[Rfam]
RNA sequence: UCGCUUGGUCAGUUUUGCUGGUUUGCAUUCAGCUUUAACCGGUGUUUGCUGUGCAAAUCCAUGCAAAACUGACCAGACGC
Number, nucleotide and partner (000 for none) at each position: 001u000002c000003g078004c000005u076006u075007g074008g073009u072010c071011a070012g069013u068014u067015u066016u065017g064018c063019u000020g060021g059022u057023u056024u055025g054026c053027a052028u051029u000030c000031a050032g049033c048034u000035u000036u000037a000038a000039c000040c000041g000042g000043u000044g000045u000046u000047u000048g033049c032050u031051g028052u027053g026054c025055a024056a023057a022058u000059c021060c020061a000062u000063g018064c017065a016066a015067a014068a013069c012070u011071g010072a009073c008074c007075a006076g005077a000078c003079g000080c000

Overview: The family of this 80-nucleotide RNA sequence from Oryzias javanicus is "mir-19 microRNA precursor family". Its family is annotated with RISC complex and miRNA-mediated post-transcriptional gene silencing in the Gene Ontology. The match comes from Rfam's covariance-model search (75 bits). Clan: mir-19 clan. On this family, see Lagos-Quintana et al., Science 2001: "Identification of novel genes coding for small expressed RNAs".